RNA sequence: AGUGAUGGUAGAGGAGCGAAAACCAUAAGUACACUUACUGAGGUGAAUGAGAGCCAGUGAAGUAAGCAGAAAGGGGAAUUCGCCGAAGUGCAAGGGUCACUCAUAUCCCUUGUGCUGGACCUAUGCUGAAUAAGUAUAGGGCUGUCACAUACCUACACCCAAGGGGUAUGUGGAGAACUAUCUCACGU
Dot-bracket structure: ......(((((....(((((..((.........((((((.....................))))))........))..)))))...((((((((((..........))))))))))((.((((((((.....)))))))).)).((((((((((.........))))))))))....)))))......
Numbered sequence: 001a002g003u004g005a006u007g008g009u010a011g012a013g014g015a016g017c018g019a020a021a022a023c024c025a026u027a028a029g030u031a032c033a034c035u036u037a038c039u040g041a042g043g044u045g046a047a048u049g050a051g052a053g054c055c056a057g058u059g060a061a062g063u064a065a066g067c068a069g070a071a072a073g074g075g076g077a078a079u080u081c082g083c084c085g086a087a088g089u090g091c092a093a094g095g096g097u098c099a100c101u102c103a104u105a106u107c108c109c110u111u112g113u114g115c116u117g118g119a120c121c122u123a124u125g126c127u128g129a130a131u132a133a134g135u136a137u138a139g140g141g142c143u144g145u146c147a148c149a150u151a152c153c154u155a156c157a158c159c160c161a162a163g164g165g166g167u168a169u170g171u172g173g174a175g176a177a178c179u180a181u182c183u184c185a186c187g188u
Stems, first nucleotide, its partner, number of pairs: 007182005016083005023076002034066006087116010117143002120140008145173010
A member of the RNA family "Lysine riboswitch aptamer" from Halalkalibacter akibai, 188 nucleotides long.
It scores 120 bits against the family's covariance model.
NCBI's taxonomy places the organism under Bacteria, Bacillati, Bacilli, Caryophanales, Halalkalibacter akibai.